[Rfam]
Nucleotides: 166
Base pairs, nucleotide, nucleotide: 004163005162006161007160008159009158010157017029018028019027031146032145033135034134035075036074037073038072070133071132078110079109114131115130117129118128119127137149138148139147
Number, partner (000 for none) and nucleotide at each position: 001000a002000c003000a004163c005162g006161u007160u008159c009158u010157c011000a012000g013000g014000g015000c016000g017029g018028g019027g020000u021000g022000g023000a024000a025000u026000u027019c028018c029017c030000c031146a032145c033135c034134g035075g036074c037073g038072g039000u040000g041000a042000u043000g044000g045000c046000a047000u048000u049000c050000g051000a052000g053000a054000c055000g056000g057000u058000u059000c060000g061000g062000a063000c064000g065000c066000a067000u068000g069000a070133g071132c072038c073037c074036g075035c076000g077000a078110g079109c080000g081000c082000c083000a084000c085000g086000g087000u088000g089000u090000c091000c092000u093000c094000g095000g096000a097000u098000g099000c100000g101000g102000u103000g104000g105000g106000u107000c108000a109079g110078c111000a112000g113000a114131u115130c116000c117129c118128g119127g120000u121000g122000u123000g124000a125000u126000c127119c128118c129117g130115g131114a132071g133070c134034c135033g136000a137149c138148g139147g140000u141000c142000a143000c144000a145032g146031u147139c148138c149137g150000g151000a152000u153000g154000c155000a156000a157010g158009a159008g160007a161006a162005c163004g164000c165000g166000a